RNA: c-di-GMP-II-GAG riboswitch aptamer
RNA sequence: GGCCGGGCGAGAGGCGCUCGAACCGCGGCCGGUAUGCCGGUCACCGAUCAAAUGGCCGCGGCUAGCCAAUGGUGAGACCGACUCGAACCACU
Numbered sequence: 001g002g003c004c005g006g007g008c009g010a011g012a013g014g015c016g017c018u019c020g021a022a023c024c025g026c027g028g029c030c031g032g033u034a035u036g037c038c039g040g041u042c043a044c045c046g047a048u049c050a051a052a053u054g055g056c057c058g059c060g061g062c063u064a065g066c067c068a069a070u071g072g073u074g075a076g077a078c079c080g081a082c083u084c085g086a087a088c089c090a091c092u
Base pairs, nucleotide, nucleotide: 001092002091005088008085009084010083011082013067014066015065023061024060025059026058027057028056029055030054039079040078041075042074043073044072045071